Bacterial large subunit ribosomal RNA: a 448-nucleotide part of an RNA from uncultured Chloroflexi bacterium 1i19.
RNA sequence: CUCGCCGAAAUAGCUUUAGGGCUAGCGUCGUUUGUUGAGCAUAGGAGGUAGAGCACUGGAUGAGGUAGGGGGCGAAAUGCUUACCGAACUCAACCAAACUCCGAAUGCCUAUGCUUUAGAACGGCAGUUGGACUGCGGGAGAUGAGUUUCGUAGUCGAGAGGGGAAAAGCCCAGACCGUCAGCUAAGGUCCUUAAGUGGUGACUAAGUGGGAAAGGAAGUGGUGUUACAGAGACAGCCAGGAGGUUGGCUUGGAAGCAGCCAUCCUUGAAAGAGUGCGUAACAGCUCACUGGUCAAGUGAUACUGCGCCGAAAAUAUAACGGGGCUUAAGUCACCCGCCGAAGCUACGGUUUUGCAGAUGCUUUAGGGCAUUUGUGAGAGGUAGGCGAGCGUUCCAUGCGCAUAGAAGCGAUACUGUAAGGAGUCGUGGAGGGCAUGGAAGUGAGAAU
Numbered sequence: 001c002u003c004g005c006c007g008a009a010a011u012a013g014c015u016u017u018a019g020g021g022c023u024a025g026c027g028u029c030g031u032u033u034g035u036u037g038a039g040c041a042u043a044g045g046a047g048g049u050a051g052a053g054c055a056c057u058g059g060a061u062g063a064g065g066u067a068g069g070g071g072g073c074g075a076a077a078u079g080c081u082u083a084c085c086g087a088a089c090u091c092a093a094c095c096a097a098a099c100u101c102c103g104a105a106u107g108c109c110u111a112u113g114c115u116u117u118a119g120a121a122c123g124g125c126a127g128u129u130g131g132a133c134u135g136c137g138g139g140a141g142a143u144g145a146g147u148u149u150c151g152u153a154g155u156c157g158a159g160a161g162g163g164g165a166a167a168a169g170c171c172c173a174g175a176c177c178g179u180c181a182g183c184u185a186a187g188g189u190c191c192u193u194a195a196g197u198g199g200u201g202a203c204u205a206a207g208u209g210g211g212a213a214a215g216g217a218a219g220u221g222g223u224g225u226u227a228c229a230g231a232g233a234c235a236g237c238c239a240g241g242a243g244g245u246u247g248g249c250u251u252g253g254a255a256g257c258a259g260c261c262a263u264c265c266u267u268g269a270a271a272g273a274g275u276g277c278g279u280a281a282c283a284g285c286u287c288a289c290u291g292g293u294c295a296a297g298u299g300a301u302a303c304u305g306c307g308c309c310g311a312a313a314a315u316a317u318a319a320c321g322g323g324g325c326u327u328a329a330g331u332c333a334c335c336c337g338c339c340g341a342a343g344c345u346a347c348g349g350u351u352u353u354g355c356a357g358a359u360g361c362u363u364u365a366g367g368g369c370a371u372u373u374g375u376g377a378g379a380g381g382u383a384g385g386c387g388a389g390c391g392u393u394c395c396a397u398g399c400g401c402a403u404a405g406a407a408g409c410g411a412u413a414c415u416g417u418a419a420g421g422a423g424u425c426g427u428g429g430a431g432g433g434c435a436u437g438g439a440a441g442u443g444a445g446a447a448u
Stems, first nucleotide, its partner, number of pairs: 001389006011024005026127001027125007036118001037116009051102001052100002057096003061092004068085002070082005131156010161172003176349004181345003187339003196336001198335006215309002219306010236293005242266003247261003267271001272287001276285002350379012390443001392440008401431001408427005414421002
Lineage of the source: Bacteria > Bacillati > Chloroflexota.